[Rfam]
RNA sequence: UCUGAUCAAUUCUGAUACCUUUUAUGUGACUGUUGGAUGAAACAUGCGGAUAUGGGACUUAGAUCAGAG
Numbered sequence: 001u002c003u004g005a006u007c008a009a010u011u012c013u014g015a016u017a018c019c020u021u022u023u024a025u026g027u028g029a030c031u032g033u034u035g036g037a038u039g040a041a042a043c044a045u046g047c048g049g050a051u052a053u054g055g056g057a058c059u060u061a062g063a064u065c066a067g068a069g
Stems, first nucleotide, its partner, number of pairs: 001068005